[Rfam]
Description:
Small nucleolar RNA SNORA12: a 140-nucleotide sequence from Aegotheles bennettii.
RNA sequence: UAUUGUGGUGGCUUCUGUAUCUGGCGGAUCUGUAACUGUUAUCAGAGCGGCCUUGAGCUACCACAGAGAUCAGAAAGGAGAAGGCUGUGCUGAGAACUUCAAGCUUUCAGUUUUCAGCUCUUUGCUCAUCUCCUACAGAA
Numbered sequence: 001u002a003u004u005g006u007g008g009u010g011g012c013u014u015c016u017g018u019a020u021c022u023g024g025c026g027g028a029u030c031u032g033u034a035a036c037u038g039u040u041a042u043c044a045g046a047g048c049g050g051c052c053u054u055g056a057g058c059u060a061c062c063a064c065a066g067a068g069a070u071c072a073g074a075a076a077g078g079a080g081a082a083g084g085c086u087g088u089g090c091u092g093a094g095a096a097c098u099u100c101a102a103g104c105u106u107u108c109a110g111u112u113u114u115c116a117g118c119u120c121u122u123u124g125c126u127c128a129u130c131u132c133c134u135a136c137a138g139a140a
Stems, first nucleotide, its partner, number of pairs: 005064007023052003027048001029046004077133005100124004

The organism belongs to Aegotheles, within Eukaryota. From the family's description: U108 belongs to the H/ACA family of snoRNAs. Gene Ontology terms of the family: RNA processing and nucleolus. A reference for the family is Gu et al. (2005), "A novel experimental approach for systematic identification of box H/ACA snoRNAs from eukaryotes", Nucleic Acids Res.